About this RNA
drz-agam-2-2 ribozyme: a 194-nucleotide sequence from Anopheles gambiae. For this family Rfam cites "Widespread occurrence of self-cleaving ribozymes" (Webb et al., Science, 2009). Taxonomically the source falls in Anopheles gambiae (Eukaryota, Opisthokonta, Hexapoda, Insecta). Rfam 15.1 lists 486 matches to the family in 10 species.
RNA sequence: AUUGUUCAUUUAGCUCUACAUGGGAUGGGUUCCGAAGUUCUCAAGGGAUAUUACAGGCUCUUCCAUCCAACUCCUAUUCUGGCAUGUCCUAGUCGUGCAGAGUGGUAACAUGUGCCACCACAUAUCCAAGCUUGGGUACACGGGCUUGUCCCAACCCCUUGGGUGGAUGGUAGCAUAUGUCAAACCAGGAGGGG
Numbered sequence: 001a002u003u004g005u006u007c008a009u010u011u012a013g014c015u016c017u018a019c020a021u022g023g024g025a026u027g028g029g030u031u032c033c034g035a036a037g038u039u040c041u042c043a044a045g046g047g048a049u050a051u052u053a054c055a056g057g058c059u060c061u062u063c064c065a066u067c068c069a070a071c072u073c074c075u076a077u078u079c080u081g082g083c084a085u086g087u088c089c090u091a092g093u094c095g096u097g098c099a100g101a102g103u104g105g106u107a108a109c110a111u112g113u114g115c116c117a118c119c120a121c122a123u124a125u126c127c128a129a130g131c132u133u134g135g136g137u138a139c140a141c142g143g144g145c146u147u148g149u150c151c152c153a154a155c156c157c158c159u160u161g162g163g164u165g166g167a168u169g170g171u172a173g174c175a176u177a178u179g180u181c182a183a184a185c186c187a188g189g190a191g192g193g194g
Stems, first nucleotide, its partner, number of pairs: 014100002017097001023068007032057002072194004077190002080188001082186001084096003088105002108180007117171003124168004132154005156163002
Dot-bracket structure: .............[[.[.....(((((((..((......................))....)))))))...((((.((.(.(.(((.{{....)))].]]...}}..(((((((..(((....((((....(((((.............))))).((....)).)))))))..))))))).....).)))))))